[Rfam]
RNA sequence: AGAGUCCUGAGGUGUACGUGCAUAACUGUACGUUUUGAGCCAACACUUUUGAAUAAGGGAGCUUGUUGUCUCCUCAUGGAUUACAUGCCCUUUCUCAUAGAUGAGGGACGUAAGAAGUGAUGAGCAGAGCACCCACCUGCCGAGGGCAGGUUCAAAACCAAAGUUUUCGACGGCACAUUUGGGACUCUU
Numbered sequence: 001a002g003a004g005u006c007c008u009g010a011g012g013u014g015u016a017c018g019u020g021c022a023u024a025a026c027u028g029u030a031c032g033u034u035u036u037g038a039g040c041c042a043a044c045a046c047u048u049u050u051g052a053a054u055a056a057g058g059g060a061g062c063u064u065g066u067u068g069u070c071u072c073c074u075c076a077u078g079g080a081u082u083a084c085a086u087g088c089c090c091u092u093u094c095u096c097a098u099a100g101a102u103g104a105g106g107g108a109c110g111u112a113a114g115a116a117g118u119g120a121u122g123a124g125c126a127g128a129g130c131a132c133c134c135a136c137c138u139g140c141c142g143a144g145g146g147c148a149g150g151u152u153c154a155a156a157a158c159c160a161a162a163g164u165u166u167u168c169g170a171c172g173g174c175a176c177a178u179u180u181g182g183g184a185c186u187c188u189u
Base pairs, nucleotide, nucleotide: 002187003186004185005184006183007182008181009180010179011178012176013175014174015173017172018171019170032158033157034156035155036154037153038152039151040150041149057134058133059132061130062129063128064127071123072122074120075119076118077117083111084110088107089106090105091104092103
A member of the RNA family "6S / SsrS RNA" from Halalkalibacterium halodurans, 189 nucleotides long. For this family Rfam cites "6S RNA in Rhodobacter sphaeroides: 6S RNA and pRNA transcript levels peak in late exponential phase and gene deletion causes a high salt stress phenotype" (Elkina et al., RNA Biol, 2017). Rfam classes the family as a non-coding RNA gene. Pairs were carried over by alignment from the consensus structure, which is taken from published work. The organism belongs to Halalkalibacterium halodurans, within Bacteria. It is one of the family's seed sequences. Rfam's curators write: E. coli 6S RNA was the first non coding RNA to be sequenced, but its function was unknown until recently.